This 34-nucleotide sequence from Allobaculum stercoricanis belongs to the Rfam family "L31-Firmicutes ribosomal protein leader". Taxonomically the source falls in Allobaculum stercoricanis (Bacteria, Erysipelotrichales, Erysipelotrichaceae, Allobaculum). The sequence is in the family's curated seed alignment. The family is grouped with related families in Rfam's "Ribosomal Protein L31 Leader clan".
RNA sequence: CUUUAAAUCAGCAAAUGAUUUAAGGCGGAAGGAG
Numbered sequence: 001c002u003u004u005a006a007a008u009c010a011g012c013a014a015a016u017g018a019u020u021u022a023a024g025g026c027g028g029a030a031g032g033a034g
Stems, first nucleotide, its partner, number of pairs: 001025010